[Rfam]
This 221-nucleotide RNA sequence from Desulfonema ishimotonii belongs to the Rfam family "HNH endonuclease-associated RNA and ORF (HEARO) RNA".
Nucleotides: 221
Stems, first nucleotide, its partner, number of pairs: 001058002004055004010037002012034002015031006038047003062206002065203001066085001068083001088201010104139002108133008116217001118216007141182004147178003153175001155172005161166001
Number, partner (000 for none) and nucleotide at each position: 001058g002057u003000c004055a005054a006053c007052g008000c009000c010037c011036c012034c013033u014000c015031c016030u017029g018028a019027a020026u021000c022000a023000c024000a025000g026020a027019u028018u029017c030016a031015g032000a033013a034012g035000g036011g037010g038047c039046u040045u041000g042000u043000a044000a045040a046039a047038g048000c049000c050000c051000a052007c053006g054005u055004u056000a057002a058001c059000u060000a061000u062206c063205c064000u065203g066085a067000a068083u069000c070000c071000c072000a073000u074000u075000c076000a077000u078000u079000c080000a081000a082000a083068a084000c085066u086000a087000c088201g089200u090199u091198c092197g093196g094195c095194a096193g097192g098000a099000u100000g101000c102000a103000g104139a105138c106000a107000c108133c109132u110131u111130c112129g113128g114127a115126u116217g117000u118216a119215u120214u121213c122212g123211c124210c125000a126115g127114u128113c129112c130111g131110a132109a133108g134000c135000g136000c137000u138105g139104u140000c141182g142181c143180g144179g145000c146000u147178c148177u149176g150000u151000a152000a153175a154000a155172g156171c157170u158169c159168u160000g161166u162000g163000a164000g165000a166161a167000a168159g169158g170157a171156g172155c173000g174000g175153u176149c177148a178147g179144c180143c181142g182141c183000a184000u185000u186000g187000c188000g189000a190000a191000g192097c193096c194095u195094g196093c197092u198091g199090a200089a201088c202000a203065u204000u205063g206062g207000c208000g209000a210124g211123g212122c213121g214120a215119a216118u217116c218000c219000u220000a221000c
The family's RNA type in Rfam is non-coding RNA gene.